Shown here is a 110-nucleotide RNA from Streptomyces xinghaiensis, a member of the family "Streptomyces RNA 4115". Rfam's curators write: Identified by deep sequencing of transcriptome at the end of exponential growth phase. Sequencing size consistent with notrthern blot size. The organism belongs to Streptomyces, within Bacteria. It is annotated as a small RNA.
RNA sequence: GCGUGGGUCGGCCCGCUGCACCGGAUCCAGCGGGCCGGGGGGACCCCGUCGCCUCAUUCCCCGCGGGCGGCGGGACGGUCCGGGAGGCGCUGAUCGUCUCCCGGGCCGCA
Numbered sequence: 001g002c003g004u005g006g007g008u009c010g011g012c013c014c015g016c017u018g019c020a021c022c023g024g025a026u027c028c029a030g031c032g033g034g035c036c037g038g039g040g041g042g043a044c045c046c047c048g049u050c051g052c053c054u055c056a057u058u059c060c061c062c063g064c065g066g067g068c069g070g071c072g073g074g075a076c077g078g079u080c081c082g083g084g085a086g087g088c089g090c091u092g093a094u095c096g097u098c099u100c101c102c103g104g105g106c107c108g109c110a
Stems, first nucleotide, its partner, number of pairs: 001109002006076001008074001009037010038044001046073009077107013